The family of this 70-nucleotide sequence is "Hepatitis C virus stem-loop VII".
RNA sequence: UAAACUCGUCGCCCAGGGGGGGAAAGCCGCUGAAUGCGGUAAGUACCUCUUCAACUGGGCGGUGAGGACA
Numbered sequence: 001u002a003a004a005c006u007c008g009u010c011g012c013c014c015a016g017g018g019g020g021g022g023a024a025a026g027c028c029g030c031u032g033a034a035u036g037c038g039g040u041a042a043g044u045a046c047c048u049c050u051u052c053a054a055c056u057g058g059g060c061g062g063u064g065a066g067g068a069c070a
Stems, first nucleotide, its partner, number of pairs: 006065011017050005026040005
It is one of the family's seed sequences. By type it is a cis-regulatory element.